[Rfam]
Small nucleolar RNA SNORA55: a 136-nucleotide RNA from Alligator sinensis. The family's RNA type in Rfam is H/ACA-box small nucleolar RNA. The source organism's lineage runs through Eukaryota, Craniata, Sauropsida, Archelosauria and Alligator. Gene Ontology terms of the family: nucleolus and RNA processing.
Nucleotides: 136
Stems, first nucleotide, its partner, number of pairs: 001057005013047006021039001068129006081117008096108003
Number, partner (000 for none) and nucleotide at each position: 001057g002056c003055a004054c005053c006000u007000g008000a009000a010000u011000c012000u013047u014046u015045c016044c017043c018042a019000u020000u021039c022000c023000u024000u025000g026000c027000a028000g029000c030000a031000c032000a033000g034000u035000g036000c037000g038000a039021g040000u041000c042018u043017g044016g045015g046014g047013a048000c049000a050000u051000a052000u053005g054004g055003u056002g057001c058000a059000u060000a061000c062000a063000g064000c065000a066000a067000a068129g069128c070127a071126g072125a073124g074000u075000a076000a077000a078000u079000c080000c081117a082116g083115a084114c085113a086112g087111g088110u089000g090000g091000u092000u093000u094000u095000u096108c097107u098106c099000u100000u101000u102000c103000a104000c105000u106098g107097a108096g109000u110088g111087c112086u113085u114084g115083u116082c117081u118000c119000u120000a121000c122000a123000c124073c125072u126071c127070u128069g129068c130000g131000a132000u133000a134000g135000c136000u